[Rfam]
RNA sequence: AAAGGAGCAAUAUCCAAUUUCUUGUUCUAUCAAGAGGAUUGGAUAUUGCUCAGUUAUAA
Numbered sequence: 001a002a003a004g005g006a007g008c009a010a011u012a013u014c015c016a017a018u019u020u021c022u023u024g025u026u027c028u029a030u031c032a033a034g035a036g037g038a039u040u041g042g043a044u045a046u047u048g049c050u051c052a053g054u055u056a057u058a059a
Stems, first nucleotide, its partner, number of pairs: 001055002005051010019036006
The family of this 59-nucleotide sequence from Hevea brasiliensis is "Plastid-psbA-3 3UTR RNA".
Rfam describes the family as follows. Plastid psbA-3 is a non-coding RNA (ncRNA) present in plastids. It was identified in inverted repeat sequences in the 3 prime untranslate region (3UTR) of photosystem II quinone-binding protein (psbA).
Its Rfam clan is "Plastid-psbA 3UTR RNA clan".
The organism belongs to Hevea, within Eukaryota.
It is annotated as a cis-regulatory element.
The literature on the family includes a 2023 paper in Plant Commun by Richter et al., "Retrograde signaling in plants: A critical review focusing on the GUN pathway and beyond".